[Rfam]
Rfam assigns this 132-nucleotide RNA sequence from Podarcis muralis to the family "Small Cajal body specific RNA 15". It scores 79 bits against the family's covariance model. Rfam links the family to the GO terms Cajal body, RNA processing and nucleolus. Clan: SCARNA4 clan. Taxonomically the source falls in Podarcis (Eukaryota, Opisthokonta, Tetrapoda, Sauria). On this family, see Darzacq et al., EMBO J 2002: "Cajal body-specific small nuclear RNAs: a novel class of 2'-O-methylation and pseudouridylation guide RNAs".
RNA sequence: CUGGAGGACUAAGAAAGUAGAACCAGUGAAGUCAGUUGGCUCUACUGAUACUAUCCUCCUAAAUUAAGUGGCAGAAGAACAAGGUCUUGCCUAUGAGACUUAUCCAGAUCUUACUGCUGUUGGCCAACAAUG
Numbered sequence: 001c002u003g004g005a006g007g008a009c010u011a012a013g014a015a016a017g018u019a020g021a022a023c024c025a026g027u028g029a030a031g032u033c034a035g036u037u038g039g040c041u042c043u044a045c046u047g048a049u050a051c052u053a054u055c056c057u058c059c060u061a062a063a064u065u066a067a068g069u070g071g072c073a074g075a076a077g078a079a080c081a082a083g084g085u086c087u088u089g090c091c092u093a094u095g096a097g098a099c100u101u102a103u104c105c106a107g108a109u110c111u112u113a114c115u116g117c118u119g120u121u122g123g124c125c126a127a128c129a130a131u132g
Base pairs, nucleotide, nucleotide: 003059004058005057006056007055008054010050011049018044019043020042021041023039024038025036027034028033070125071124072123074121075120077118082112083111084110087107088106089105
Rfam describes the family as follows. scaRNAs are a specific class of small nuclear RNAs which localise to the Cajal bodies and guide the modification of RNA polymerase II transcribed spliceosomal RNAs U1, U2, U4, U5 and U12. ACA45 belongs to the H/ACA box class of guide RNAs as it has the predicted hairpin-hinge-hairpin-tail structure, the conserved H/ACA-box motifs and is found associated with GAR1.